[Rfam]
The record is a 138-nucleotide RNA from Paenibacillus sp. CAA11, which matches "c-di-AMP riboswitch aptamer (ydaO/yuaA leader)" in Rfam.

RNA sequence: UAUAUAAGAAAGCCUAAUUCCCGAGCAUCCGGGAAGCGGGGGAACCGUUUUGGGUGAAUUGAUCUCGCAAGAGAGGGAUCAUAGGGAACCUUCAACCGAAUCCUUAAGCUAACCUCGCAGGCGUUGGAAGGAGUUUAC
Numbered sequence: 001u002a003u004a005u006a007a008g009a010a011a012g013c014c015u016a017a018u019u020c021c022c023g024a025g026c027a028u029c030c031g032g033g034a035a036g037c038g039g040g041g042g043a044a045c046c047g048u049u050u051u052g053g054g055u056g057a058a059u060u061g062a063u064c065u066c067g068c069a070a071g072a073g074a075g076g077g078a079u080c081a082u083a084g085g086g087a088a089c090c091u092u093c094a095a096c097c098g099a100a101u102c103c104u105u106a107a108g109c110u111a112a113c114c115u116c117g118c119a120g121g122c123g124u125u126g127g128a129a130g131g132a133g134u135u136u137a138c
Base pairs, nucleotide, nucleotide: 012122013121014120018035019034020033021032022031023030036118037117038116039115040114041113052103053102054101060081061080062079063078064077065076066075084097085096
NCBI's taxonomy places the organism under Bacteria, Bacillati, Caryophanales, Paenibacillaceae, Paenibacillus.